Bacterial large subunit ribosomal RNA: a 566-nucleotide part of an RNA from Loigolactobacillus rennini. The match comes from Rfam's covariance-model search (2886 bits). The literature on the family includes a 2001 paper in Science by Yusupov et al., "Crystal structure of the ribosome at 5.5 A resolution".
RNA sequence: GAAGUAAAGCGCACGGUGGAUGCCUUGGCACUAGGCGCCGAUGAAGGACGGGACUAACACCGAUAUGCUCCGGGGAGCUGUACGUAAGCAAUGAACCGAAGAUUUCCGAAUGGGGCAACCCAGCCAGCUUAAUCGCUGGCUGCUGGCAGGCGAAUUCAUAACCUGCGCAGCGGUAAACGCGGGGAACUGAAACAUCUCAGUACCCGCAGGAAGAGAAAACAAUUGUGAUUCCCUUAGUAGCGGCGAGCGAAGCGGGAACAGCCCAAACCAACGAGCUUGCUCGUUGGGGUUGUAGGACUGAACAUUAGAGUGACCAAAAGCAGCUUUAGCUGAACCAGGUGGGAAACUGGACCACAGCGGGUAAGAGUCCCGUAGGCGAAAAAGCGGCUUCUCUGUUCAGGAUCCUGAGUACGGCGGCACACGUGUAAUGCCGUCGGAAUCCGGGAGGACCAUCUCCCAAGGCUAAAUACGACCUAGUGACCGAUAGUGAACCAGUACCGUGAGGGAAAGGUGAAAAGCACCCCGGAAGGGGAGUGAAACAGUUCCUGAAACCGUGUGCUCACAAU
Dot-bracket structure: .......(((((((((.....(((..(((((((((((((......((((((........))).....((.(((...(((.......)))......))).))...)))....(((....)))(((((((......))))))).((((((((...........))))).))).))....((((((.....((....))......))))).).........((....))..(((((......((.....)).....))))..((((....(((((((......)))))))......(((.(((((.............(.((((.(((((.(((...((((........))))..(...).(((.......)))...)))...))))).)))).)...)))))...))).....((((((((.........))))))))......(((((......)))))..))))..)..)).))))))).))...............((....))....)).........((((....)))).............).....)))))))))......